[Rfam]
RNA sequence: GCUGUUUUCAGGUGGAUGACUUCACAAUUUCAGUACUUGACAGAAUGAAAAAGAAAUUGCACAGUAUCCAUCUGCAAUCCGCC
Numbered sequence: 001g002c003u004g005u006u007u008u009c010a011g012g013u014g015g016a017u018g019a020c021u022u023c024a025c026a027a028u029u030u031c032a033g034u035a036c037u038u039g040a041c042a043g044a045a046u047g048a049a050a051a052a053g054a055a056a057u058u059g060c061a062c063a064g065u066a067u068c069c070a071u072c073u074g075c076a077a078u079c080c081g082c083c
Base pairs, nucleotide, nucleotide: 009074010073011072012071013070014069015068016067017066019065020064025059026058027057028056029055030054031053

Overview
The record is an 83-nucleotide sequence from Collichthys lucidus, which matches "mir-363 microRNA precursor family" in Rfam. Gene Ontology terms of the family: RISC complex and miRNA-mediated post-transcriptional gene silencing. A search with the family's covariance model found it, with a score of 63 bits. The family's consensus secondary structure was predicted with RNAalifold. Its Rfam clan is "mir-19 clan".